[Rfam]
RNA sequence: AUAGAUAGCUUAAUAGAACCUCAUAUAAUCGCGGGGAUAUGGCCUGCAAGUUUCUACCCGGUUACCGUAAAUGACUGGACUAUGAGGGAGAGUUGACCUUUU
Numbered sequence: 001a002u003a004g005a006u007a008g009c010u011u012a013a014u015a016g017a018a019c020c021u022c023a024u025a026u027a028a029u030c031g032c033g034g035g036g037a038u039a040u041g042g043c044c045u046g047c048a049a050g051u052u053u054c055u056a057c058c059c060g061g062u063u064a065c066c067g068u069a070a071a072u073g074a075c076u077g078g079a080c081u082a083u084g085a086g087g088g089a090g091a092g093u094u095g096a097c098c099u100u101u102u
Stems, first nucleotide, its partner, number of pairs: 019087007029049001031047005058078007

Rfam assigns this 102-nucleotide RNA from Falsibacillus pallidus to the family "Purine riboswitch aptamer".
It scores 88 bits against the family's covariance model.
On this family, see Mandal et al., Cell 2003: "Riboswitches Control Fundamental Biochemical Pathways in Bacillus subtilis and Other Bacteria".
The family's consensus secondary structure is taken from published work.